The family of this 82-nucleotide RNA from Orthoflavivirus montanaense is "No-known vector Flavivirus exoribonuclease-resistant RNA element". About the family: The exoribonuclease-resistant RNA elements (xrRNA) are described throughout all groups of flaviviruses. Usually, each virus harbors two xrRNAs, xrRNA1 and xrRNA2, in the beginning of the 3' UTR. The formation of these stem-loops, especially xrRNA1, is vital to ensure resistance against XRN1 activity. The Y-shaped stem-loop is also termed SL II and SL IV, respectively. The literature on the family includes a 2008 paper in Cell Host Microbe by Pijlman et al., "A highly structured, nuclease-resistant, noncoding RNA produced by flaviviruses is required for pathogenicity". The base pairs follow the family's consensus structure, which was predicted with LocARNA.

RNA sequence: UGCGAGUGAGGGCAACUCUGGGAUUAGCUCAAUGGGUGUGACGACCCUACCCUUCCGCAUUUGUAAAUAAUUGAGCCAGUCA
Numbered sequence: 001u002g003c004g005a006g007u008g009a010g011g012g013c014a015a016c017u018c019u020g021g022g023a024u025u026a027g028c029u030c031a032a033u034g035g036g037u038g039u040g041a042c043g044a045c046c047c048u049a050c051c052c053u054u055c056c057g058c059a060u061u062u063g064u065a066a067a068u069a070a071u072u073g074a075g076c077c078a079g080u081c082a
Base pairs, nucleotide, nucleotide: 001059002058003057004056008054009053010052011051012050019031020030021029022028033049034048035047036046038045039044